[Rfam]
RNA sequence: GCGAAGAUCAGGGCUUGAGUUUUCGGCAGCCGGCACCCAUAAUCCCCUACAUGGUCGUAAUUCCGGCAAACCGGAUGCGUUCUGGACGCGGGUUCGAUUCCCGCCACCUCCACCACUGCGGGGGUGUACUGGUUUCGACAGGGCGAGAGAUGGCGCGCAGGCGACCCGAAAGGCGACGGACGUAAUCCGAGCAAAUCCACAAACGCCAACGAUGAGCGUUUCGCACUGGCCGCUUGAGGCCUGCUGAGGACGUAGCCGUCCAAUAAACAGAAUGGCUAUCGGCGGGGGCUUCGGCCCCCGCCGUCA
Dot-bracket structure: ....................................................(((((.....((.((...(......(((((((...(((((.......)))))(((((((........)))))))............)))))))......)....)).)))))))((............)).................................................................[[[.((((((.]]]............))))))..((((((((....)))))))).....
Annotation
Betaproteobacteria transfer-messenger RNA: a 306-nucleotide RNA from Candidatus Accumulibacter adjunctus. Its Rfam clan is "tRNA clan". NCBI's taxonomy places the organism under Bacteria, Pseudomonadati, Pseudomonadota, Betaproteobacteria, Candidatus Accumulibacter. It is annotated as a non-coding RNA gene. Gene Ontology term of the family: RNA catabolic process. Rfam's curators write: Bacterial tmRNA, also known as 10Sa RNA or SsrA, is named for its dual tRNA and mRNA-like properties. Its role is to liberate the mRNA from a stalled ribosome. To accomplish this part of the tmRNA is used as a reading frame that ends in a translation stop signal. The broken mRNA is replaced in the ribosome by the tmRNA and translation of the tmRNA leads to addition of a proteolysis tag to the incomplete protein enabling recognition by a protease. Recently a number of permuted tmRNA genes have been found encoded in two parts. tmRNAs have been identified in eubacteria and some chloroplasts but are absent from archaeal and eukaryote nuclear genomes.